Shown here is a 272-nucleotide RNA from Cladophialophora psammophila, a member of the family "Fungal signal recognition particle RNA".
A search with the family's covariance model found it, with a score of 128 bits.
The source organism's lineage runs through Eukaryota, saccharomyceta, Eurotiomycetes, Herpotrichiellaceae and Cladophialophora psammophila.
Gene Ontology terms of the family: SRP-dependent cotranslational protein targeting to membrane, signal sequence recognition, signal recognition particle, endoplasmic reticulum targeting and signal recognition particle, plasma membrane targeting.
[Rfam]
RNA sequence: CGGCUGUUAUGGUCAAAAAGUGAGAAGGUUGCCUGGAGCCCGUGGGCGUCGCUUCACACUCCCACUUGCUCAGUUGUGCCUUGCUCGGAAUUUCGGGUCGUUCAUCGUACUCGUGUGUGUAAACCACGAUGCUACGGAGCGCUAAGCAAUCGGAAGUGACACUUGAGGGAAGCGAUUCUGCAGAGACUCUUCCACCCGGAGUUGGCGAUGUUAGAUUACACACUGGCAAGAUAUGCGAAGUCUCGGGCUCGAUGUGGGCGACCGACUUUUUU
Numbered sequence: 001c002g003g004c005u006g007u008u009a010u011g012g013u014c015a016a017a018a019a020g021u022g023a024g025a026a027g028g029u030u031g032c033c034u035g036g037a038g039c040c041c042g043u044g045g046g047c048g049u050c051g052c053u054u055c056a057c058a059c060u061c062c063c064a065c066u067u068g069c070u071c072a073g074u075u076g077u078g079c080c081u082u083g084c085u086c087g088g089a090a091u092u093u094c095g096g097g098u099c100g101u102u103c104a105u106c107g108u109a110c111u112c113g114u115g116u117g118u119g120u121a122a123a124c125c126a127c128g129a130u131g132c133u134a135c136g137g138a139g140c141g142c143u144a145a146g147c148a149a150u151c152g153g154a155a156g157u158g159a160c161a162c163u164u165g166a167g168g169g170a171a172g173c174g175a176u177u178c179u180g181c182a183g184a185g186a187c188u189c190u191u192c193c194a195c196c197c198g199g200a201g202u203u204g205g206c207g208a209u210g211u212u213a214g215a216u217u218a219c220a221c222a223c224u225g226g227c228a229a230g231a232u233a234u235g236c237g238a239a240g241u242c243u244c245g246g247g248c249u250c251g252a253u254g255u256g257g258g259c260g261a262c263c264g265a266c267u268u269u270u271u272u
Stems, first nucleotide, its partner, number of pairs: 002014003018272003022268003027263007036250003040246003044243004049238004067228003071225003075222004080214002083211002085208003089203009099141001101138003105134001107132002111129005117124002142146001152193005162185003169178003